The family of this 70-nucleotide RNA sequence from Enhydra lutris is "Small nucleolar RNA U2-30". NCBI's taxonomy places the organism under Eukaryota, Eumetazoa, Boreoeutheria, Carnivora, Enhydra lutris. For this family Rfam cites "Guide RNAs with 5' Caps and Novel Box C/D snoRNA-like Domains for Modification of snRNAs in Metazoa" (Tycowski et al., Curr Biol, 2004).
[Rfam]
RNA sequence: GAGCAAUGAUGGAAAGGUUUUACUACUGACAUUUACAACUAUGAAGGUUUCUACACUUGUUCCGAGCUCA
Numbered sequence: 001g002a003g004c005a006a007u008g009a010u011g012g013a014a015a016g017g018u019u020u021u022a023c024u025a026c027u028g029a030c031a032u033u034u035a036c037a038a039c040u041a042u043g044a045a046g047g048u049u050u051c052u053a054c055a056c057u058u059g060u061u062c063c064g065a066g067c068u069c070a
Stems, first nucleotide, its partner, number of pairs: 001069004013034003017030003
A search with the family's covariance model found it, with a score of 89 bits.